A member of the RNA family "Small Cajal body specific RNA 1" from Phyllostomus discolor, 155 nucleotides long. From the family's description: scaRNAs are a specific class of small nuclear RNAs which localise to the Cajal bodies and guide the modification of RNA polymerase II transcribed spliceosomal RNAs U1, U2, U4, U5 and U12. It is annotated as a small Cajal body RNA. Rfam links the family to the GO terms RNA processing, nucleolus and Cajal body. A search with the family's covariance model found it, with a score of 71 bits. Rfam 15.1 lists 715 matches to the family in 617 species.

RNA sequence: CAGCACUCGCCACAGACCGAGCUGUUGACAGCCUGGCCUCGGAUCAGAGGCCUAUGUGUGUUGUGACAGUGGGUUCGAGACAGGCAAUAUUGAAACAAGUCUUUUAAGCCUAGCGUGUAAAAGGCACACUUGCAUUACAAUUCAGUGACACAGUU
Numbered sequence: 001c002a003g004c005a006c007u008c009g010c011c012a013c014a015g016a017c018c019g020a021g022c023u024g025u026u027g028a029c030a031g032c033c034u035g036g037c038c039u040c041g042g043a044u045c046a047g048a049g050g051c052c053u054a055u056g057u058g059u060g061u062u063g064u065g066a067c068a069g070u071g072g073g074u075u076c077g078a079g080a081c082a083g084g085c086a087a088u089a090u091u092g093a094a095a096c097a098a099g100u101c102u103u104u105u106a107a108g109c110c111u112a113g114c115g116u117g118u119a120a121a122a123g124g125c126a127c128a129c130u131u132g133c134a135u136u137a138c139a140a141u142u143c144a145g146u147g148a149c150a151c152a153g154u155u
Stems, first nucleotide, its partner, number of pairs: 003085002006083002015075004021070006028059003032056001035052006099149003113129001115127004130145003134141002